[Rfam]
RNA sequence: GGAGUUAACUAGAUAAUCGCUGUUUCUUUGAUUAAUUAUUUAAAAAUAUUUAACAAAAUAAUUAAUGUAGUAAUAGUAGAAAAAGAGGAAAGUCCGGGCUCCAUAGAGCAGAGUGCCAGGUAACACCUGGGAGAUGUGAAUCUACGACUAGUGCAACAGAAAAUAAACCGCCUAUUAAAUUUUUUUUAUUAAUAGUAGUAUAAGUAUUAAUUAAGUUAUAUUAAUUAUUAGCGAAAUUAUUAUUAGGUAAGGGUGAAAUGGUGUGGUAAGAGCACACCACAUAUUUUGGUAACAAAUAUGGUAUGGUAAACUUCCACUUGGAGCAAGGCCAAAUAAUAGUUCAGUAAAAUAUGGCUCGUAUUGAACUUUGGGUGGGCCGCUUUUGAGUCAAUAUGUGAAUAUUGGCCUAGAUGAAUGAUUAUCCAUGACAGAACCCGGCUUACAGUUAACUCCAAUU
Dot-bracket structure: ((((((((((.(((((((.((.(((((..................................................))))).))....[[[.[[[[[((((...[[[[.((((((((((.....)))))(((((....)))).)((...((((.............(((((((.(((.............................................................))).)))))..)).......((((((.......))))))((((((.(((....)))))))).)...))..)).)))))))))))...((((.......((.(......(((((.]]]])))))..).))......))))........((((((((....))))))))..........)))))))..........]]]]]]]]..))))))))))....
Numbered sequence: 001g002g003a004g005u006u007a008a009c010u011a012g013a014u015a016a017u018c019g020c021u022g023u024u025u026c027u028u029u030g031a032u033u034a035a036u037u038a039u040u041u042a043a044a045a046a047u048a049u050u051u052a053a054c055a056a057a058a059u060a061a062u063u064a065a066u067g068u069a070g071u072a073a074u075a076g077u078a079g080a081a082a083a084a085g086a087g088g089a090a091a092g093u094c095c096g097g098g099c100u101c102c103a104u105a106g107a108g109c110a111g112a113g114u115g116c117c118a119g120g121u122a123a124c125a126c127c128u129g130g131g132a133g134a135u136g137u138g139a140a141u142c143u144a145c146g147a148c149u150a151g152u153g154c155a156a157c158a159g160a161a162a163a164u165a166a167a168c169c170g171c172c173u174a175u176u177a178a179a180u181u182u183u184u185u186u187u188a189u190u191a192a193u194a195g196u197a198g199u200a201u202a203a204g205u206a207u208u209a210a211u212u213a214a215g216u217u218a219u220a221u222u223a224a225u226u227a228u229u230a231g232c233g234a235a236a237u238u239a240u241u242a243u244u245a246g247g248u249a250a251g252g253g254u255g256a257a258a259u260g261g262u263g264u265g266g267u268a269a270g271a272g273c274a275c276a277c278c279a280c281a282u283a284u285u286u287u288g289g290u291a292a293c294a295a296a297u298a299u300g301g302u303a304u305g306g307u308a309a310a311c312u313u314c315c316a317c318u319u320g321g322a323g324c325a326a327g328g329c330c331a332a333a334u335a336a337u338a339g340u341u342c343a344g345u346a347a348a349a350u351a352u353g354g355c356u357c358g359u360a361u362u363g364a365a366c367u368u369u370g371g372g373u374g375g376g377c378c379g380c381u382u383u384u385g386a387g388u389c390a391a392u393a394u395g396u397g398a399a400u401a402u403u404g405g406c407c408u409a410g411a412u413g414a415a416u417g418a419u420u421a422u423c424c425a426u427g428a429c430a431g432a433a434c435c436c437g438g439c440u441u442a443c444a445g446u447u448a449a450c451u452c453c454a455a456u457u
Stems, first nucleotide, its partner, number of pairs: 001453010012423007020085002023082005090441003094438005099323004106357004111319005116130005131145001132143004146314002151311002153307002168252002170248005176242003260278006279302001280300005286295003327378004338368002341365001348362005387406008
Bacterial RNase P class A: a 457-nucleotide sequence from Blochmannia endosymbiont of Camponotus (Colobopsis) obliquus. Pairs were carried over by alignment from the consensus structure, which is taken from published work. It scores 265 bits against the family's covariance model. Ribonuclease P (RNase P) is a ubiquitous endoribonuclease, found in archaea, bacteria and eukarya as well as chloroplasts and mitochondria. Its best characterised activity is the generation of mature 5'-ends of tRNAs by cleaving the 5'-leader elements of precursor-tRNAs. Cellular RNase Ps are ribonucleoproteins. RNA from bacterial RNase Ps retains its catalytic activity in the absence of the protein subunit, i.e. it is a ribozyme. Isolated eukaryotic and archaeal RNase P RNA has not been shown to retain its catalytic function, but is still essential for the catalytic activity of the holoenzyme. Although the archaeal and eukaryotic holoenzyme s have a much greater protein content than the bacterial ones, the RNA cores from all the three lineages are homologous -- helices corresponding to P1, P2, P3, P4, and P10/11 are common to all cellular RNase P RNAs. Yet, there is considerable sequence variation, particularly among the eukaryotic RNAs. Identified in Yersinia as Ysr151/RnpB.